[Rfam]
RNA: Small nucleolar RNA Z278
RNA sequence: GUCAGUGAUGAGCUAAUCCACUUAAUUGAGGUGUAGCUGAUCGCAAGUCCCUAAUUUGCAGGAAAAACCUACUUGGGGUUGCUACAACAUCCCCUGAAAACACUUGAAAUUUCUGAGGC
Numbered sequence: 001g002u003c004a005g006u007g008a009u010g011a012g013c014u015a016a017u018c019c020a021c022u023u024a025a026u027u028g029a030g031g032u033g034u035a036g037c038u039g040a041u042c043g044c045a046a047g048u049c050c051c052u053a054a055u056u057u058g059c060a061g062g063a064a065a066a067a068c069c070u071a072c073u074u075g076g077g078g079u080u081g082c083u084a085c086a087a088c089a090u091c092c093c094c095u096g097a098a099a100a101c102a103c104u105u106g107a108a109a110u111u112u113c114u115g116a117g118g119c
Stems, first nucleotide, its partner, number of pairs: 001119003050062003
Dot-bracket structure: (((..............................................(((.......)))......................................................)))